The record is a 153-nucleotide sequence from Piscibacillus halophilus, which matches "ylbH leader" in Rfam. About the family: This family is a putative regulatory RNA structure that is found upstream of the ylbH gene in B. subtilis and related low GC Gram-positive bacteria. Lineage of the source: Bacteria > Bacillati > Bacillota > Bacillaceae > Piscibacillus. The literature on the family includes a 2004 paper in Proc Natl Acad Sci U S A by Barrick et al., "New RNA motifs suggest an expanded scope for riboswitches in bacterial genetic control". Rfam classes the family as a cis-regulatory leader. The pairing is the family consensus, mapped onto this sequence.
[Rfam]
RNA sequence: AGAAUAAUAAAAGUAACCAAAAAAAGUGGCUUUUCUUUAAUCUAUUGAUUAAAGAAAAGCCACAACUCUCCGUCAUUCAACAGAGAGAGUACAAAAAGGGAGAGGAGAAACCGGAAGAAGGUCUUAUGGGGAAUGAUAAGACUUUCUCCGAGU
Numbered sequence: 001a002g003a004a005u006a007a008u009a010a011a012a013g014u015a016a017c018c019a020a021a022a023a024a025a026g027u028g029g030c031u032u033u034u035c036u037u038u039a040a041u042c043u044a045u046u047g048a049u050u051a052a053a054g055a056a057a058a059g060c061c062a063c064a065a066c067u068c069u070c071c072g073u074c075a076u077u078c079a080a081c082a083g084a085g086a087g088a089g090u091a092c093a094a095a096a097a098g099g100g101a102g103a104g105g106a107g108a109a110a111c112c113g114g115a116a117g118a119a120g121g122u123c124u125u126a127u128g129g130g131g132a133a134u135g136a137u138a139a140g141a142c143u144u145u146c147u148c149c150g151a152g153u
Base pairs, nucleotide, nucleotide: 011032012031013030014029016027017026033100034099035098036097037096041088042087043086112150113149114148115147117146118145119143120142122141123140124139125138126137